Rfam assigns this 141-nucleotide RNA from bacterium C-53 to the family "FMN riboswitch aptamer (RFN element)".

RNA sequence: GAAAUUCUUCGGGGUCGGGUGAAAGUCCCAACCGGUGGUGAAGUCUCUUAUGGAGAACGAGUCCACGACCCGCAUGGCAACAUGCGGCUGAUUUGGUAGAAUCCAAAACCGACAGUAAAGUCUGGAUGAAAGAAGAAAAUU
Numbered sequence: 001g002a003a004a005u006u007c008u009u010c011g012g013g014g015u016c017g018g019g020u021g022a023a024a025g026u027c028c029c030a031a032c033c034g035g036u037g038g039u040g041a042a043g044u045c046u047c048u049u050a051u052g053g054a055g056a057a058c059g060a061g062u063c064c065a066c067g068a069c070c071c072g073c074a075u076g077g078c079a080a081c082a083u084g085c086g087g088c089u090g091a092u093u094u095g096g097u098a099g100a101a102u103c104c105a106a107a108a109c110c111g112a113c114a115g116u117a118a119a120g121u122c123u124g125g126a127u128g129a130a131a132g133a134a135g136a137a138a139a140u141u
Stems, first nucleotide, its partner, number of pairs: 005137006017029003031121002033111002035066004061109002070087002092107005113124003